[Rfam]
RNA sequence: CCAUCCGGCAUCCUAGAUGGGGAGCCGUGGGACCUCCCUCGUGCCUGUGGUGGUGGGAUCCCAUGGCAGUGUUUUCCUGGUGGCCCGGCC
Numbered sequence: 001c002c003a004u005c006c007g008g009c010a011u012c013c014u015a016g017a018u019g020g021g022g023a024g025c026c027g028u029g030g031g032a033c034c035u036c037c038c039u040c041g042u043g044c045c046u047g048u049g050g051u052g053g054u055g056g057g058a059u060c061c062c063a064u065g066g067c068a069g070u071g072u073u074u075u076c077c078u079g080g081u082g083g084c085c086c087g088g089c090c
Stems, first nucleotide, its partner, number of pairs: 005088004011083002013080004019073002022070001024067009033053002036050002038047001
RNA: mir-663 microRNA precursor family